[Rfam]
RNA sequence: AUUAUUACCCUAAUGAGCACUAACUUGAUGGUUGAUUACAGUAAGUGCUUCUUUUUAGGGCAGUUUUU
Numbered sequence: 001a002u003u004a005u006u007a008c009c010c011u012a013a014u015g016a017g018c019a020c021u022a023a024c025u026u027g028a029u030g031g032u033u034g035a036u037u038a039c040a041g042u043a044a045g046u047g048c049u050u051c052u053u054u055u056u057a058g059g060g061c062a063g064u065u066u067u068u
Stems, first nucleotide, its partner, number of pairs: 004064003008060004013053001015051001016049006023042003
Shown here is a 68-nucleotide RNA from Channa argus, a member of the family "miR-430 microRNA precursor family".
NCBI's taxonomy places the organism under Eukaryota, Actinopterygii, Eurypterygia, Acanthomorphata, Channa.
For this family Rfam cites "MicroRNAs regulate brain morphogenesis in zebrafish" (Giraldez et al., Science, 2005).
A search with the family's covariance model found it, with a score of 49 bits.